[Rfam]
RNA: mir-544 microRNA precursor family
Organism: Myotis davidii
RNA sequence: AUUCUCUGGGGAUCUUGCUAAAAUGCAGGUUCUGAUUCAGGAGGUCUGAGAUGGAGCCCGAGAACCUGCAUUUCUAACAAGCUCCCAGAUGCUGCUGA
Numbered sequence: 001a002u003u004c005u006c007u008g009g010g011g012a013u014c015u016u017g018c019u020a021a022a023a024u025g026c027a028g029g030u031u032c033u034g035a036u037u038c039a040g041g042a043g044g045u046c047u048g049a050g051a052u053g054g055a056g057c058c059c060g061a062g063a064a065c066c067u068g069c070a071u072u073u074c075u076a077a078c079a080a081g082c083u084c085c086c087a088g089a090u091g092c093u094g095c096u097g098a
Base pairs, nucleotide, nucleotide: 003091005089009085010084011083014081015080016079017078019076020075021073022072023071025069026068027067028066029065031063032062033061